[Rfam]
RNA sequence: CCACGUGGACGACCACGUCAGUUAAAUCAUGUCCACGUGGACGACCACG
Numbered sequence: 001c002c003a004c005g006u007g008g009a010c011g012a013c014c015a016c017g018u019c020a021g022u023u024a025a026a027u028c029a030u031g032u033c034c035a036c037g038u039g040g041a042c043g044a045c046c047a048c049g
Stems, first nucleotide, its partner, number of pairs: 003018006036049005
Shown here is a 49-nucleotide RNA sequence from Miscanthus lutarioriparius, a member of the family "Guanidine-II riboswitch aptamer (mini-ykkC)". Rfam describes the family as follows. Simpler in structure and has fewer highly conserved nucleotide positions than the ykkC-yxkD leader. Rfam links the family to the GO term regulation of gene expression. The family's consensus secondary structure is taken from published work.